[Rfam]
RNA sequence: GCCUUGAUAGCUCAGUUGGGAGAGCGUGAGACUGAAGAUCUAAAGGUCACCAGUUCGAUCCUGGUUCAGGGCA
Numbered sequence: 001g002c003c004u005u006g007a008u009a010g011c012u013c014a015g016u017u018g019g020g021a022g023a024g025c026g027u028g029a030g031a032c033u034g035a036a037g038a039u040c041u042a043a044a045g046g047u048c049a050c051c052a053g054u055u056c057g058a059u060c061c062u063g064g065u066u067c068a069g070g071g072c073a
Base pairs, nucleotide, nucleotide: 001072002071003070004069005068006067007066010025011024012023013022027043029041030040031039049065050064051063052062053061